Shown here is a 154-nucleotide RNA from Enhydra lutris, a member of the family "U4 spliceosomal RNA".
Rfam classes the family as a spliceosomal small nuclear RNA.
Rfam links the family to the GO terms U4 snRNP and spliceosomal tri-snRNP complex assembly.
Rfam describes the family as follows. U4 small nuclear RNA (U4 snRNA) is a component of the major U2-dependent spliceosome.
RNA sequence: AGCUUUGCGCAGUGGCAGUAUCAUAGCCAAUGAGGUUUAUCCGAGGCGCGAUUAUUGCUAAUUGAAAAUUGUCAGCACAAAUAUGUAGCCUGACACACACUGUUUAACACUUUAUUAAGCAAGGGUUUUGAGCUUGUGCAAUGUGCCCGGGUAC
Numbered sequence: 001a002g003c004u005u006u007g008c009g010c011a012g013u014g015g016c017a018g019u020a021u022c023a024u025a026g027c028c029a030a031u032g033a034g035g036u037u038u039a040u041c042c043g044a045g046g047c048g049c050g051a052u053u054a055u056u057g058c059u060a061a062u063u064g065a066a067a068a069u070u071g072u073c074a075g076c077a078c079a080a081a082u083a084u085g086u087a088g089c090c091u092g093a094c095a096c097a098c099a100c101u102g103u104u105u106a107a108c109a110c111u112u113u114a115u116u117a118a119g120c121a122a123g124g125g126u127u128u129u130g131a132g133c134u135u136g137u138g139c140a141a142u143g144u145g146c147c148c149g150g151g152u153a154c
Base pairs, nucleotide, nucleotide: 020052021051022050024048026047027046028045034042035041090130092128093126094125096123100119101118143154144153145152146151
Dot-bracket structure: ...................(((.(.(((.....((.....))..)))).))).....................................(.(((.(...((................))...).)).).)............((((....))))